[Rfam]
RNA: mir-320 microRNA precursor family
Organism: Propithecus coquereli
RNA sequence: UCCUCCUUGGGCCUUCUCUUCCCUGUUUUUCCUGGAGUUGGGAAAAACUGGGCCGAGAGGGCGAAAAAAAAAAAGA
Numbered sequence: 001u002c003c004u005c006c007u008u009g010g011g012c013c014u015u016c017u018c019u020u021c022c023c024u025g026u027u028u029u030u031c032c033u034g035g036a037g038u039u040g041g042g043a044a045a046a047a048c049u050g051g052g053c054c055g056a057g058a059g060g061g062c063g064a065a066a067a068a069a070a071a072a073a074a075g076a
Stems, first nucleotide, its partner, number of pairs: 014059005021052003025048001029044006